The family of this 84-nucleotide RNA sequence from Aspergillus minisclerotigenes is "tRNA". It is annotated as a transfer RNA. The family's consensus secondary structure is taken from published work. Transfer RNA (tRNA) molecules are approximately 80 nucleotides in length.
[Rfam]
RNA sequence: GGUUGUGUAGUGUAGUGGUUAUCACUUUGGAUUUUGAUAACACAUUAAUUUCCAAUAACCCCGGUUCGAACCCGGGCACGACCU
Numbered sequence: 001g002g003u004u005g006u007g008u009a010g011u012g013u014a015g016u017g018g019u020u021a022u023c024a025c026u027u028u029g030g031a032u033u034u035u036g037a038u039a040a041c042a043c044a045u046u047a048a049u050u051u052c053c054a055a056u057a058a059c060c061c062c063g064g065u066u067c068g069a070a071c072c073c074g075g076g077c078a079c080g081a082c083c084u
Stems, first nucleotide, its partner, number of pairs: 001083007010025003027055005060076005